[Rfam]
RNA: RAGATH-18 RNA
Organism: Clostridium perfringens
RNA sequence: CCCUCUGAGAGUUAUAAGAAAUGAAAGUAGAUUACACUCUGUAUAGUUUUCAAAAUCUGACUCGUAGAACAGGGAA
Numbered sequence: 001c002c003c004u005c006u007g008a009g010a011g012u013u014a015u016a017a018g019a020a021a022u023g024a025a026a027g028u029a030g031a032u033u034a035c036a037c038u039c040u041g042u043a044u045a046g047u048u049u050u051c052a053a054a055a056u057c058u059g060a061c062u063c064g065u066a067g068a069a070c071a072g073g074g075a076a
Base pairs, nucleotide, nucleotide: 001074002073003072004071009063010062011061012060013059023057024056030051031050036047037046038045